[Rfam]
RNA sequence: AGAAGCCAGCUCCUCUCUGGAAUUCUGAAACUUUCCUUUGCAUGUUACAUUAAUCCAUAUAAGAAAAUCUCUUUUAAUGAGGAGUGAUAUAGUUACUAACUCUCUAGAGCCACAAUUAGAGCAAACUAAUUGAACUUGUGUUUUGACACACUUUCCAAAUUCACGGGUGCUGCAUGACAUAUUCACAACAGUGUUGCCGCACAGCCAUGGCGACAGCAAAAUCAUUAGGCUAAUAACGCUUAUUUGCAUUCUUAUCAUGCCAGCAGCAUGCCAUUAAAUACUGUUUCAACCAUUGCUCGUUUACUCUGAAAGUUUCCACUGAAAGGUAUUAACAGUAAUUAUUAGUACUUUAGUGGAAACUCUUAUAUUAAGGA
Numbered sequence: 001a002g003a004a005g006c007c008a009g010c011u012c013c014u015c016u017c018u019g020g021a022a023u024u025c026u027g028a029a030a031c032u033u034u035c036c037u038u039u040g041c042a043u044g045u046u047a048c049a050u051u052a053a054u055c056c057a058u059a060u061a062a063g064a065a066a067a068u069c070u071c072u073u074u075u076a077a078u079g080a081g082g083a084g085u086g087a088u089a090u091a092g093u094u095a096c097u098a099a100c101u102c103u104c105u106a107g108a109g110c111c112a113c114a115a116u117u118a119g120a121g122c123a124a125a126c127u128a129a130u131u132g133a134a135c136u137u138g139u140g141u142u143u144u145g146a147c148a149c150a151c152u153u154u155c156c157a158a159a160u161u162c163a164c165g166g167g168u169g170c171u172g173c174a175u176g177a178c179a180u181a182u183u184c185a186c187a188a189c190a191g192u193g194u195u196g197c198c199g200c201a202c203a204g205c206c207a208u209g210g211c212g213a214c215a216g217c218a219a220a221a222u223c224a225u226u227a228g229g230c231u232a233a234u235a236a237c238g239c240u241u242a243u244u245u246g247c248a249u250u251c252u253u254a255u256c257a258u259g260c261c262a263g264c265a266g267c268a269u270g271c272c273a274u275u276a277a278a279u280a281c282u283g284u285u286u287c288a289a290c291c292a293u294u295g296c297u298c299g300u301u302u303a304c305u306c307u308g309a310a311a312g313u314u315u316c317c318a319c320u321g322a323a324a325g326g327u328a329u330u331a332a333c334a335g336u337a338a339u340u341a342u343u344a345g346u347a348c349u350u351u352a353g354u355g356g357a358a359a360c361u362c363u364u365a366u367a368u369u370a371a372g373g374a
Base pairs, nucleotide, nucleotide: 049366050365052363054357055356056355057354058353061350062349063348069084070083071082072081073080074079089342090341091340092339093338094337095336096335100109101108102107119298120297121296122295123294132154133153134152137150138149139148140147141146166272167271169267170266195212196211197210198209199208216260217259218258229247230246232244233243234242235241

Rfam assigns this 374-nucleotide RNA from Mauremys mutica to the family "ncRNA Repressor of NFAT (nuclear factor of activated T cells)". The family has 24 seed sequences and 522 matches in Rfam 15.1. By type it is a non-coding RNA gene. Pairs were carried over by alignment from the consensus structure.